[Rfam]
The family of this 140-nucleotide RNA from Tachuris rubrigastra is "Small nucleolar RNA SNORA79". From the family's description: ACA65 (SNORA79) is a member of the H/ACA class of snoRNAs that guide the sites of modification of uridines to pseudouridines. Rfam classes the family as an H/ACA-box small nucleolar RNA. On this family, see Schattner et al., RNA 2006: "A computational screen for mammalian pseudouridylation guide H/ACA RNAs". A search with the family's covariance model found it, with a score of 57 bits. Rfam links the family to the GO terms RNA processing and nucleolus.

RNA sequence: CGACCCGCGUUCCCCCCGCCGCCGUCAGCCGCGGGCGAGCGGGGUUUUAGCGGUGUCGCAGAGCAGUGGCGGCUUCUUCUUCACCCGGGGGAGCAGCAGAGGGUUCGGGGCUCCACCGGAUUUUGGGGAGUCGUACAAAG
Numbered sequence: 001c002g003a004c005c006c007g008c009g010u011u012c013c014c015c016c017c018g019c020c021g022c023c024g025u026c027a028g029c030c031g032c033g034g035g036c037g038a039g040c041g042g043g044g045u046u047u048u049a050g051c052g053g054u055g056u057c058g059c060a061g062a063g064c065a066g067u068g069g070c071g072g073c074u075u076c077u078u079c080u081u082c083a084c085c086c087g088g089g090g091g092a093g094c095a096g097c098a099g100a101g102g103g104u105u106c107g108g109g110g111c112u113c114c115a116c117c118g119g120a121u122u123u124u125g126g127g128g129a130g131u132c133g134u135a136c137a138a139a140g
Stems, first nucleotide, its partner, number of pairs: 001058004005053004014044005020037004071132006085119004090114005